RNA: Singlet oxygen resistance RNA X
RNA sequence: ACCCGCCGCAUACGGGUUUAAAUCUAUGCACCUCCCUGUUGGACUGACCCCGGCCUGGCCGGGGUCUUUUU
Numbered sequence: 001a002c003c004c005g006c007c008g009c010a011u012a013c014g015g016g017u018u019u020a021a022a023u024c025u026a027u028g029c030a031c032c033u034c035c036c037u038g039u040u041g042g043a044c045u046g047a048c049c050c051c052g053g054c055c056u057g058g059c060c061g062g063g064g065u066c067u068u069u070u071u
Base pairs, nucleotide, nucleotide: 008029009028010027011026012025014023047065048064049063050062051061052060053059054058